GP20-b RNA: a 65-nucleotide RNA from Anaerostipes caccae. NCBI's taxonomy places the organism under Bacteria, Clostridia, Lachnospiraceae, Anaerostipes, Anaerostipes caccae.
RNA sequence: GGUCAGGAGAUUAGACCUUAAAUAGUCGGUUUCGGGGUGGAUGGUUACACACCUAAAACAACCUA
Numbered sequence: 001g002g003u004c005a006g007g008a009g010a011u012u013a014g015a016c017c018u019u020a021a022a023u024a025g026u027c028g029g030u031u032u033c034g035g036g037g038u039g040g041a042u043g044g045u046u047a048c049a050c051a052c053c054u055a056a057a058a059c060a061a062c063c064u065a
Stems, first nucleotide, its partner, number of pairs: 001017004009027005036053004
The sequence is in the family's curated seed alignment. The family's RNA type in Rfam is cis-regulatory element.